This 111-nucleotide RNA sequence from Vibrio genomosp. F10 belongs to the Rfam family "Phenylalanine leader peptide". Rfam links the family to the GO term cellular amino acid metabolic process. NCBI's taxonomy places the organism under Bacteria, Pseudomonadati, Gammaproteobacteria, Vibrionales, Vibrio. The match comes from Rfam's covariance-model search (60 bits).

Nucleotides: 111
Stems, first nucleotide, its partner, number of pairs: 016090004021085010032074003039053004054065004098111005
Number, partner (000 for none) and nucleotide at each position: 001000u002000a003000u004000g005000c006000a007000a008000a009000c010000u011000u012000a013000c014000c015000u016090g017089u018088u019087c020000u021085u022084u023083u024082u025081u026080g027079a028078c029077u030076u031000c032074u033073u034072u035000u036000u037000a038000c039053u040052c041051c042050a043000a044000u045000a046000a047000c048000c049000u050042u051041g052040g053039a054065g055064g056063c057062g058000g059000g060000a061000u062057c063056g064055u065054u066000u067000g068000c069000a070000g071000a072034a073033g074032a075000u076030a077029a078028g079027u080026c081025a082024a083023a084022a085021a086000c087019g088018a089017a090016c091000a092000a093000g094000a095000a096000g097000c098111c099110u100109c101108c102107c103000a104000a105000a106000u107102g108101g109100g110099a111098g